[Rfam]
RNA sequence: AUAGUGUAUGUAAACAUCCUACACUCUCAGCUGUGAAUAUAUGGUGGCUGGGAGAAGGGUGUUUACGCCCACUGU
Numbered sequence: 001a002u003a004g005u006g007u008a009u010g011u012a013a014a015c016a017u018c019c020u021a022c023a024c025u026c027u028c029a030g031c032u033g034u035g036a037a038u039a040u041a042u043g044g045u046g047g048c049u050g051g052g053a054g055a056a057g058g059g060u061g062u063u064u065a066c067g068c069c070c071a072c073u074g075u
Base pairs, nucleotide, nucleotide: 002074003073004072005071006070009067010066011065012064013063014062015061016060017059018058019057020056024054025053026052027051028050029049030048031047032046

Background: The record is a 75-nucleotide RNA from Aquarana catesbeiana, which matches "mir-30 microRNA precursor family" in Rfam. The source organism's lineage runs through Eukaryota, Deuterostomia, Vertebrata, Ranidae and Aquarana. Its family is annotated with gene silencing by miRNA and RISC complex in the Gene Ontology. Rfam 15.1 lists 3,879 matches to the family in 647 species. The literature on the family includes a 2001 paper in Science by Lagos-Quintana et al., "Identification of novel genes coding for small expressed RNAs".